[Rfam]
RNA sequence: GGGGAACACUUAGAUCCCCAUGGCCGUAGUGUUAAUAGUCAUGUCUCUGGCCGGGCAUGGCGGUUAGUGAAUC
Dot-bracket structure: (((((.........)))))............(((((.(((((((((......))))))))).)))))......
L13-Bacteroidia ribosomal protein leader: a 73-nucleotide RNA. By type it is a cis-regulatory leader.